[Rfam]
RNA sequence: GAAGCCUCUCGAAUAACUGAAUGGAUGAUACCCUUAACCAUUUGGUUCAGACAGGGGCGCACAGUAAACUGAAUCUGUUUGAGGGUAAGGGACGCUGCUUUCCUUUUCUGUUCCUUUCCUAGUUUGCUUCAUACAUUC
Numbered sequence: 001g002a003a004g005c006c007u008c009u010c011g012a013a014u015a016a017c018u019g020a021a022u023g024g025a026u027g028a029u030a031c032c033c034u035u036a037a038c039c040a041u042u043u044g045g046u047u048c049a050g051a052c053a054g055g056g057g058c059g060c061a062c063a064g065u066a067a068a069c070u071g072a073a074u075c076u077g078u079u080u081g082a083g084g085g086u087a088a089g090g091g092a093c094g095c096u097g098c099u100u101u102c103c104u105u106u107u108c109u110g111u112u113c114c115u116u117u118c119c120u121a122g123u124u125u126g127c128u129u130c131a132u133a134c135a136u137u138c
Stems, first nucleotide, its partner, number of pairs: 004058004009054001015047008024038001070131004075126001077116001081111001083109001085108001087105006
The family of this 138-nucleotide RNA from Sesamum indicum is "Small nucleolar RNA snoR138". On this family, see Chen and Wu, Nucleic Acids Res 2009: "Mining small RNA sequencing data: a new approach to identify small nucleolar RNAs in Arabidopsis". A search with the family's covariance model found it, with a score of 52 bits. Rfam classes the family as an H/ACA-box small nucleolar RNA. The source organism's lineage runs through Eukaryota, Euphyllophyta, Lamiales, Pedaliaceae and Sesamum.